RNA sequence: UGUAAGUAUUUUACGAUUAAGAAGCAAUUGCCUCUUGUACAUAUUGUGUAUUAGUCU
Numbered sequence: 001u002g003u004a005a006g007u008a009u010u011u012u013a014c015g016a017u018u019a020a021g022a023a024g025c026a027a028u029u030g031c032c033u034c035u036u037g038u039a040c041a042u043a044u045u046g047u048g049u050a051u052u053a054g055u056c057u
Stems, first nucleotide, its partner, number of pairs: 018037005024031002
RNA: Plastid-rps18 3UTR RNA
Organism: Ziziphus jujuba